[Rfam]
RNA sequence: UUCCCUAUACUUUGUACGUCGCUUUGGAUAAAAGCGACUGCUAAAUGACUAAAU
Numbered sequence: 001u002u003c004c005c006u007a008u009a010c011u012u013u014g015u016a017c018g019u020c021g022c023u024u025u026g027g028a029u030a031a032a033a034g035c036g037a038c039u040g041c042u043a044a045a046u047g048a049c050u051a052a053a054u
Base pairs, nucleotide, nucleotide: 013043014041015040016039020036021035022034023033024032025031
This 54-nucleotide RNA from Triplophysa rosa belongs to the Rfam family "UnaL2 LINE 3' element". Lineage of the source: Eukaryota > Neopterygii > Otophysi > Cypriniphysae > Triplophysa. Rfam links the family to the GO term transposition, RNA-mediated. Rfam describes the family as follows. The eel long interspersed element (LINE) UnaL2 and its partner short interspersed element (SINE) share a conserved 3' tail containing a stem-loop that is critical for their retrotransposition. Presumably, the first step of retrotransposition is the recognition of their 3' tails by UnaL2-encoded reverse transcriptase. The solution structure of a 17-nucleotide RNA derived from the 3' tail of UnaL2 was determined by NMR. It scores 58 bits against the family's covariance model.